[Rfam]
RNA: ylbH leader
Organism: Sediminibacillus albus
RNA sequence: AAUAAAAAAAGCCUGCAGACAAAGCUGCAGGCCCUUUUUGCUCUCCUGAUAGAAAGCAAAAAGGCAAAGGGAGAGGAGAAACCGGAAGAAGAACUUAUGGGGAAACGUAAGCCUUCUCCGUGU
Numbered sequence: 001a002a003u004a005a006a007a008a009a010a011g012c013c014u015g016c017a018g019a020c021a022a023a024g025c026u027g028c029a030g031g032c033c034c035u036u037u038u039u040g041c042u043c044u045c046c047u048g049a050u051a052g053a054a055a056g057c058a059a060a061a062a063g064g065c066a067a068a069g070g071g072a073g074a075g076g077a078g079a080a081a082c083c084g085g086a087a088g089a090a091g092a093a094c095u096u097a098u099g100g101g102g103a104a105a106c107g108u109a110a111g112c113c114u115u116c117u118c119c120g121u122g123u
Stems, first nucleotide, its partner, number of pairs: 011032008033071005040057003044053002083120004088116004094111004